Plastid-psbA-3 3UTR RNA: a 52-nucleotide sequence. Clan: Plastid-psbA 3UTR RNA clan. Rfam describes the family as follows. Plastid psbA-3 is a non-coding RNA (ncRNA) present in plastids. It was identified in inverted repeat sequences in the 3 prime untranslate region (3UTR) of photosystem II quinone-binding protein (psbA). Pairs were carried over by alignment from the consensus structure, which was predicted with LocARNA. The family's RNA type in Rfam is cis-regulatory element.
Nucleotides: 052
Base pairs, nucleotide, nucleotide: 005051006050007049008048009047010046011045012044013043014042015041020037021036022035023034024033025032
Number, partner (000 for none) and nucleotide at each position: 001000a002000a003000a004000a005051g006050g007049a008048g009047c010046a011045a012044u013043a014042a015041c016000c017000c018000c019000c020037u021036u022035c023034u024033u025032g026000u027000u028000c029000g030000a031000g032025c033024a034023a035022g036021a037020g038000g039000g040000c041015g042014u043013u044012a045011u046010u047009g048008u049007u050006u051005u052000c